[Rfam]
RNA sequence: UUGUUAAGACGAAACUGGUUUUCACAAUGAUUUGACAGAUAGAUAUGAUUCUGAGAUCAUUGUGAAAGCUGAUUUUGUUCG
Numbered sequence: 001u002u003g004u005u006a007a008g009a010c011g012a013a014a015c016u017g018g019u020u021u022u023c024a025c026a027a028u029g030a031u032u033u034g035a036c037a038g039a040u041a042g043a044u045a046u047g048a049u050u051c052u053g054a055g056a057u058c059a060u061u062g063u064g065a066a067a068g069c070u071g072a073u074u075u076u077g078u079u080c081g
Base pairs, nucleotide, nucleotide: 009078010077011076012075013074014073016071017070018069019068020067021066022065023064024063025062028059029058030057031056032055033054